[Rfam]
RNA sequence: AGCAAAAUGAUGAGUUGAUGAUUCUGAAUUUUUAUGUUGAAAAAUUUAGUAUAAUGGUCUUCAAAGUUCUCUGAUUGCU
Numbered sequence: 001a002g003c004a005a006a007a008u009g010a011u012g013a014g015u016u017g018a019u020g021a022u023u024c025u026g027a028a029u030u031u032u033u034a035u036g037u038u039g040a041a042a043a044a045u046u047u048a049g050u051a052u053a054a055u056g057g058u059c060u061u062c063a064a065a066g067u068u069c070u071c072u073g074a075u076u077g078c079u
Stems, first nucleotide, its partner, number of pairs: 001079005
Annotation:
The record is a 79-nucleotide RNA from Thalictrum thalictroides, which matches "Small nucleolar RNA R160" in Rfam. It is annotated as a C/D-box small nucleolar RNA. Rfam's curators write: snoR160 is a C/D box small nucleolar RNA, which acts as a methylation guide for 25S ribosomal RNA in plants. snoR160 has been alternatively named snoZ270 in rice. NCBI's taxonomy places the organism under Eukaryota, Embryophyta, Mesangiospermae, Ranunculales, Thalictrum. It scores 70 bits against the family's covariance model. The family has 9 seed sequences and 799 matches in Rfam 15.1. A reference for the family is Chen et al. (2003), "The high diversity of snoRNAs in plants: identification and comparative study of 120 snoRNA genes from Oryza sativa", Nucleic Acids Res. Pairs were carried over by alignment from the consensus structure.